[Rfam]
RNA sequence: CACGACAAAGGCAAAUCCGUCGAAAGACGGAGACGCGCAGCCCUUGACGCGUCGGCGUUGCGCUGAUGCGUCUGGUACUCUAGAUACUGCAUAUCUGCUCGCUCGCACUCUCCACAUGACGCAUUGGGAUGCCCAAAGCAAAGCUGCUGUUU
Numbered sequence: 001c002a003c004g005a006c007a008a009a010g011g012c013a014a015a016u017c018c019g020u021c022g023a024a025a026g027a028c029g030g031a032g033a034c035g036c037g038c039a040g041c042c043c044u045u046g047a048c049g050c051g052u053c054g055g056c057g058u059u060g061c062g063c064u065g066a067u068g069c070g071u072c073u074g075g076u077a078c079u080c081u082a083g084a085u086a087c088u089g090c091a092u093a094u095c096u097g098c099u100c101g102c103u104c105g106c107a108c109u110c111u112c113c114a115c116a117u118g119a120c121g122c123a124u125u126g127g128g129a130u131g132c133c134c135a136a137a138g139c140a141a142a143g144c145u146g147c148u149g150u151u152u
Base pairs, nucleotide, nucleotide: 003149004148011036012035016031017030018029019028020027021026034138039145040144041143044141045140046139
This 152-nucleotide RNA belongs to the Rfam family "c-di-GMP-I-GGC riboswitch aptamer". The base pairs follow the family's consensus structure, which is taken from published work. The sequence is in the family's curated seed alignment.